drz-agam-1 ribozyme: a 118-nucleotide sequence from Aedes aegypti.
The organism belongs to Stegomyia, within Eukaryota.
The literature on the family includes a 2009 paper in Science by Webb et al., "Widespread occurrence of self-cleaving ribozymes".

[Rfam]
RNA sequence: UGCCCAGCAACUCCUAUCCCUACCUCCUCGUGGUACUAGCCGGAAAUACGAGUAACCUUGGGGAAGAUCGGGUAAUCAAUCCCCGGUGGGAACUUUGGCCGUAUGCUGACAGGGAAGG
Numbered sequence: 001u002g003c004c005c006a007g008c009a010a011c012u013c014c015u016a017u018c019c020c021u022a023c024c025u026c027c028u029c030g031u032g033g034u035a036c037u038a039g040c041c042g043g044a045a046a047u048a049c050g051a052g053u054a055a056c057c058u059u060g061g062g063g064a065a066g067a068u069c070g071g072g073u074a075a076u077c078a079a080u081c082c083c084c085g086g087u088g089g090g091a092a093c094u095u096u097g098g099c100c101g102u103a104u105g106c107u108g109a110c111a112g113g114g115a116a117g118g
Base pairs, nucleotide, nucleotide: 013118014117015116017114018113019112022034023033024032046104047103048102049101050100053097054096
Dot-bracket structure: ............(((.(((..(((.......)))...........(((((..((.........................................))..))))).......))).)))